[Rfam]
RNA sequence: UUCUUAUCAAGAAAGACUGAGGGACAGGGCCCGACGACGUCUUAGCAACCUUGUACCAGCUUGGUGCUAAUUCCCUUCUGAAGUAUAAAAUCUUUGGAAAAGAUAAGAA
Numbered sequence: 001u002u003c004u005u006a007u008c009a010a011g012a013a014a015g016a017c018u019g020a021g022g023g024a025c026a027g028g029g030c031c032c033g034a035c036g037a038c039g040u041c042u043u044a045g046c047a048a049c050c051u052u053g054u055a056c057c058a059g060c061u062u063g064g065u066g067c068u069a070a071u072u073c074c075c076u077u078c079u080g081a082a083g084u085a086u087a088a089a090a091u092c093u094u095u096g097g098a099a100a101a102g103a104u105a106a107g108a109a
Base pairs, nucleotide, nucleotide: 001109002108003107004106005105006104007103008102013043014042015041016040017039021032022031023030026076027075028074029073044068045067046066047065049064050063053060054059072101077098078097079096080095081094082093